Rfam assigns this 251-nucleotide RNA to the family "raiA RNA".
Rfam's curators put it in the seed alignment.
[Rfam]
RNA sequence: UCAACGCCGGUCUGUGGUUGCGGACAACAAUUGUCCUAGCUCAAGGCAGAACGGGUCGAAGGAGUCCACAUAAGUCAGUGGUGGUGGGAGCCCCUGUUGGGGGCGCUAUACCACAGCCGUUGAUGAGCAUGGCCGUUCUUAGGUGUAAGCCCUGCCGGUUGUCUUGAUAGACAAAAUUUUACCGAGACUUGUAAUAGCCAAAAGCAGGCAGCAGGCGAGUGUGGGGUCAAAAACCAGGUCAGCGGCGUUGA
Numbered sequence: 001u002c003a004a005c006g007c008c009g010g011u012c013u014g015u016g017g018u019u020g021c022g023g024a025c026a027a028c029a030a031u032u033g034u035c036c037u038a039g040c041u042c043a044a045g046g047c048a049g050a051a052c053g054g055g056u057c058g059a060a061g062g063a064g065u066c067c068a069c070a071u072a073a074g075u076c077a078g079u080g081g082u083g084g085u086g087g088g089a090g091c092c093c094c095u096g097u098u099g100g101g102g103g104c105g106c107u108a109u110a111c112c113a114c115a116g117c118c119g120u121u122g123a124u125g126a127g128c129a130u131g132g133c134c135g136u137u138c139u140u141a142g143g144u145g146u147a148a149g150c151c152c153u154g155c156c157g158g159u160u161g162u163c164u165u166g167a168u169a170g171a172c173a174a175a176a177u178u179u180u181a182c183c184g185a186g187a188c189u190u191g192u193a194a195u196a197g198c199c200a201a202a203a204g205c206a207g208g209c210a211g212c213a214g215g216c217g218a219g220u221g222u223g224g225g226g227u228c229a230a231a232a233a234c235c236a237g238g239u240c241a242g243c244g245g246c247g248u249u250g251a
Stems, first nucleotide, its partner, number of pairs: 001251009012242003015236005043222001045220001046056001048139007065132002073124001075122001077120001130229001151215005156184004188208004
By type it is a riboswitch.